[Rfam]
RNA sequence: AGUGGAGGAAGAAUGGCUAAGAUCGCCACGUCCUGUGGCAAUGCCGUUCUGACCCACAUCCUUUGGG
Numbered sequence: 001a002g003u004g005g006a007g008g009a010a011g012a013a014u015g016g017c018u019a020a021g022a023u024c025g026c027c028a029c030g031u032c033c034u035g036u037g038g039c040a041a042u043g044c045c046g047u048u049c050u051g052a053c054c055c056a057c058a059u060c061c062u063u064u065g066g067g
Stems, first nucleotide, its partner, number of pairs: 011049007025039005053067004
A member of the RNA family "Bacillaceae-1 RNA" from Peribacillus saganii, 67 nucleotides long. It scores 64 bits against the family's covariance model. The source organism's lineage runs through Bacteria, Bacillati, Bacillota, Caryophanales and Peribacillus.